A member of the RNA family "U11 spliceosomal RNA" from Trifolium medium, 125 nucleotides long. By type it is a spliceosomal small nuclear RNA. The organism belongs to Trifolium, within Eukaryota.

RNA sequence: AAAAAGGGCCAGUUGGCUAAUUAUGCCACGCUCAUCUUGUUGGUGAGUGAUGUAUGGCUAUCAAGACAUAUGGCUGACAUAAUUUUUGUGAAAUUAUAGAGUUGGCUCGCCUAGCCGACCCUUUG
Numbered sequence: 001a002a003a004a005a006g007g008g009c010c011a012g013u014u015g016g017c018u019a020a021u022u023a024u025g026c027c028a029c030g031c032u033c034a035u036c037u038u039g040u041u042g043g044u045g046a047g048u049g050a051u052g053u054a055u056g057g058c059u060a061u062c063a064a065g066a067c068a069u070a071u072g073g074c075u076g077a078c079a080u081a082a083u084u085u086u087u088g089u090g091a092a093a094u095u096a097u098a099g100a101g102u103u104g105g106c107u108c109g110c111c112u113a114g115c116c117g118a119c120c121c122u123u124u125g
Stems, first nucleotide, its partner, number of pairs: 008078001010076003014028004029049008051072006096123001099120001101119007